[Rfam]
RNA: glmS glucosamine-6-phosphate activated ribozyme aptamer
RNA sequence: ACGGUUUGACAAGCGCCUGCGCUUGCUGCGGCCGCCGGAUCGGAUAACGGGCGGGCCGGAUUUGCAUAAGCGAGCGGACGAGGUAGAGGUGUUCGGAACAUUCGGCGGGGACCUCUCGGCAUGUCGCAUCGGGCCGAAAGCGGGAAGGCAAAACGUUCGGGCAACCGGGCGGACAAGAUUUCCGCGUGAUGCGAA
Numbered sequence: 001a002c003g004g005u006u007u008g009a010c011a012a013g014c015g016c017c018u019g020c021g022c023u024u025g026c027u028g029c030g031g032c033c034g035c036c037g038g039a040u041c042g043g044a045u046a047a048c049g050g051g052c053g054g055g056c057c058g059g060a061u062u063u064g065c066a067u068a069a070g071c072g073a074g075c076g077g078a079c080g081a082g083g084u085a086g087a088g089g090u091g092u093u094c095g096g097a098a099c100a101u102u103c104g105g106c107g108g109g110g111a112c113c114u115c116u117c118g119g120c121a122u123g124u125c126g127c128a129u130c131g132g133g134c135c136g137a138a139a140g141c142g143g144g145a146a147g148g149c150a151a152a153a154c155g156u157u158c159g160g161g162c163a164a165c166c167g168g169g170c171g172g173a174c175a176a177g178a179u180u181u182c183c184g185c186g187u188g189a190u191g192c193g194a195a
Base pairs, nucleotide, nucleotide: 020076021075022074023073024072025071026070027069085116086115087114088113089112093105094104095103096102117136118135119134120133122131123130140185141184142183143182144181145180146179154171155170156169157168158167159166160165